Rfam assigns this 270-nucleotide RNA from an Acidimicrobiia bacterium to the family "Bacterial large signal recognition particle RNA".
It is annotated as a non-coding RNA gene.
Rfam describes the family as follows. The signal recognition particle (SRP) is a universally conserved ribonucleoprotein involved in the co-translational targeting of proteins to membranes.
Its family is annotated with SRP-dependent cotranslational protein targeting to membrane, signal sequence recognition and signal recognition particle, plasma membrane targeting in the Gene Ontology.
[Rfam]
RNA sequence: UCGUGCUAGGCGGGGCGCUAGGGGUGCCCUAUUACCCGAAACCCUCUCAAUGCGGGGCUGAAUUCCCCGCCCGAGGAGCAACGGCUCAUCGAUCGCUGUUGGUAACGCGGUGAUGACGGUUGGGUCCUACGCGACGGGAAAUCGCGAAUCGAGUCAGGUCCGGAAGGAAGCAGCUCUAAGCGAACCUUCCCGGGCGCCGUAGGAGUGCCUGACCCGAGCAGGCAACCAACAACGCGGUGAGAUUCGAAUCUCCAACGGCGGGGUGCACGG
Numbered sequence: 001u002c003g004u005g006c007u008a009g010g011c012g013g014g015g016c017g018c019u020a021g022g023g024g025u026g027c028c029c030u031a032u033u034a035c036c037c038g039a040a041a042c043c044c045u046c047u048c049a050a051u052g053c054g055g056g057g058c059u060g061a062a063u064u065c066c067c068c069g070c071c072c073g074a075g076g077a078g079c080a081a082c083g084g085c086u087c088a089u090c091g092a093u094c095g096c097u098g099u100u101g102g103u104a105a106c107g108c109g110g111u112g113a114u115g116a117c118g119g120u121u122g123g124g125u126c127c128u129a130c131g132c133g134a135c136g137g138g139a140a141a142u143c144g145c146g147a148a149u150c151g152a153g154u155c156a157g158g159u160c161c162g163g164a165a166g167g168a169a170g171c172a173g174c175u176c177u178a179a180g181c182g183a184a185c186c187u188u189c190c191c192g193g194g195c196g197c198c199g200u201a202g203g204a205g206u207g208c209c210u211g212a213c214c215c216g217a218g219c220a221g222g223c224a225a226c227c228a229a230c231a232a233c234g235c236g237g238u239g240a241g242a243u244u245c246g247a248a249u250c251u252c253c254a255a256c257g258g259c260g261g262g263g264u265g266c267a268c269g270g
Stems, first nucleotide, its partner, number of pairs: 001270006009059003012030008035056004040051001065263007075253004082246003085241006094234002098230006107223002110219002118214008126203006132194001135192005142183004151176004159168003
The family's consensus secondary structure is taken from published work.